The record is a 148-nucleotide RNA from Dactylosporangium vinaceum, which matches "FMN riboswitch aptamer (RFN element)" in Rfam. NCBI's taxonomy places the organism under Bacteria, Bacillati, Actinomycetes, Micromonosporaceae, Dactylosporangium. The family's consensus secondary structure is taken from published work. Gene Ontology term of the family: FMN binding.
RNA sequence: ACGCGCUGGCGGGGCUCGGUGAAAUUCCGAACCGGCGGUAACCGUUCCGAGAGGGACGGAAGCCCGCGACCCGGUCGAAGCCAUCGGCCGGUGGACCUGGUGUGAGUCCAGGGCCGACGGUCAAAGUCCGGAUGGGAGUUCAGCGCGC
Numbered sequence: 001a002c003g004c005g006c007u008g009g010c011g012g013g014g015c016u017c018g019g020u021g022a023a024a025u026u027c028c029g030a031a032c033c034g035g036c037g038g039u040a041a042c043c044g045u046u047c048c049g050a051g052a053g054g055g056a057c058g059g060a061a062g063c064c065c066g067c068g069a070c071c072c073g074g075u076c077g078a079a080g081c082c083a084u085c086g087g088c089c090g091g092u093g094g095a096c097c098u099g100g101u102g103u104g105a106g107u108c109c110a111g112g113g114c115c116g117a118c119g120g121u122c123a124a125a126g127u128c129c130g131g132a133u134g135g136g137a138g139u140u141c142a143g144c145g146c147g148c
Base pairs, nucleotide, nucleotide: 003146004145005144006143007142008141009139010138017029018028019027031127032126033116034115035067036066037065038064062114063113071091072090096112097111098110099109100108118130119129120128